[Rfam]
RNA sequence: GCUGCCACAUGAUGGCUGGAUCUGAAAUCUUAGAUGGGUCUGGCUUGAUGUUUUUGCAGC
Numbered sequence: 001g002c003u004g005c006c007a008c009a010u011g012a013u014g015g016c017u018g019g020a021u022c023u024g025a026a027a028u029c030u031u032a033g034a035u036g037g038g039u040c041u042g043g044c045u046u047g048a049u050g051u052u053u054u055u056g057c058a059g060c
Stems, first nucleotide, its partner, number of pairs: 001060005014045010028034002
Shown here is a 60-nucleotide sequence from Erinaceus europaeus, a member of the family "Selenocysteine insertion sequence 1".